[Rfam]
RNA sequence: AGCUUUGCACAGUAGCAGUACCGUAGCCAAUGAGGUUUAUCCAAGGUGCAAUUAUUGCUAAUUGAAAACUUUCCCAAUACUCCACCGUGACGACGUGAAAUAUAGUCAGCACUGGCAAUUUUUUAAUGGUCUCUAUGGAGA
Numbered sequence: 001a002g003c004u005u006u007g008c009a010c011a012g013u014a015g016c017a018g019u020a021c022c023g024u025a026g027c028c029a030a031u032g033a034g035g036u037u038u039a040u041c042c043a044a045g046g047u048g049c050a051a052u053u054a055u056u057g058c059u060a061a062u063u064g065a066a067a068a069c070u071u072u073c074c075c076a077a078u079a080c081u082c083c084a085c086c087g088u089g090a091c092g093a094c095g096u097g098a099a100a101u102a103u104a105g106u107c108a109g110c111a112c113u114g115g116c117a118a119u120u121u122u123u124u125a126a127u128g129g130u131c132u133c134u135a136u137g138g139a140g141a
Stems, first nucleotide, its partner, number of pairs: 020052001023049002026047003034042002085115002087112003092107003130141004